[Rfam]
RNA sequence: UGCAUGUGAUGAUAACCUUAAUCUGAACAAAAUCUAUGCUGAUUACACAUUCAAAUUAAACCAAAAGGAUUCUGACAUGCA
Numbered sequence: 001u002g003c004a005u006g007u008g009a010u011g012a013u014a015a016c017c018u019u020a021a022u023c024u025g026a027a028c029a030a031a032a033u034c035u036a037u038g039c040u041g042a043u044u045a046c047a048c049a050u051u052c053a054a055a056u057u058a059a060a061c062c063a064a065a066a067g068g069a070u071u072c073u074g075a076c077a078u079g080c081a
Stems, first nucleotide, its partner, number of pairs: 001081004
The record is an 81-nucleotide RNA sequence from Musca domestica, which matches "Small nucleolar RNA Me28S-Cm3227" in Rfam. A search with the family's covariance model found it, with a score of 61 bits. Rfam classes the family as a C/D-box small nucleolar RNA. A reference for the family is Huang et al. (2005), "Genome-wide analyses of two families of snoRNA genes from Drosophila melanogaster, demonstrating the extensive utilization of introns for coding of snoRNAs", RNA.